[Rfam]
RNA sequence: GCAGGCCGGGUGACCGCGGGCCCUUACGGCUCGAGGAAAGUCCGGACACCGAAGGGCAGGACGCUGGGGCGACCCAGGCGGCGAAAGCCGACGGAAAGUGGCACAGAAAGGAGACCGCCGGCAGCGAUUCUCCGGAGACGCUGAAGGUAAGGGUGAAAAGGUGGGGUAAGAGCCCACCAGCGUCGUGGCGACACGGCGGCUAGCCAAACCCCGUCCGGUGCAAGGCAAACAGGUCCCGCCAUCAGGCGGCCCGCCGAGGGACCGGGUUGCUGCACAGAGGGAUGGUCACCGUAAACAGAAUCCGGCUUACGGGCCUGCUAAC
Numbered sequence: 001g002c003a004g005g006c007c008g009g010g011u012g013a014c015c016g017c018g019g020g021c022c023c024u025u026a027c028g029g030c031u032c033g034a035g036g037a038a039a040g041u042c043c044g045g046a047c048a049c050c051g052a053a054g055g056g057c058a059g060g061a062c063g064c065u066g067g068g069g070c071g072a073c074c075c076a077g078g079c080g081g082c083g084a085a086a087g088c089c090g091a092c093g094g095a096a097a098g099u100g101g102c103a104c105a106g107a108a109a110g111g112a113g114a115c116c117g118c119c120g121g122c123a124g125c126g127a128u129u130c131u132c133c134g135g136a137g138a139c140g141c142u143g144a145a146g147g148u149a150a151g152g153g154u155g156a157a158a159a160g161g162u163g164g165g166g167u168a169a170g171a172g173c174c175c176a177c178c179a180g181c182g183u184c185g186u187g188g189c190g191a192c193a194c195g196g197c198g199g200c201u202a203g204c205c206a207a208a209c210c211c212c213g214u215c216c217g218g219u220g221c222a223a224g225g226c227a228a229a230c231a232g233g234u235c236c237c238g239c240c241a242u243c244a245g246g247c248g249g250c251c252c253g254c255c256g257a258g259g260g261a262c263c264g265g266g267u268u269g270c271u272g273c274a275c276a277g278a279g280g281g282a283u284g285g286u287c288a289c290c291g292u293a294a295a296c297a298g299a300a301u302c303c304g305g306c307u308u309a310c311g312g313g314c315c316u317g318c319u320a321a322c
Base pairs, nucleotide, nucleotide: 001318002317003316004315005314006313007312008310009290010289011288012287013286014285015284017033018032019031020030021029022028038308039307040306042305043304044303045302046301047220048219049218050217054252055251056250057249059216060215061214062213063212064077065076066075067074068073078092079090080089081088082087093211094210098209099208100205101204102203115152116151117148118147119146122143123142124141125140160178161177162176163175164174165173180200181198182197183196184195185194186193187192224271225270226269232263233262234261235260236259237258243256245255246254247253
Bacterial RNase P class A: a 322-nucleotide sequence from Gaiella sp. SCGC AG-212-M14. It scores 213 bits against the family's covariance model. The organism belongs to Gaiella, within Bacteria. By type it is a ribozyme. Rfam describes the family as follows. Ribonuclease P (RNase P) is a ubiquitous endoribonuclease, found in archaea, bacteria and eukarya as well as chloroplasts and mitochondria.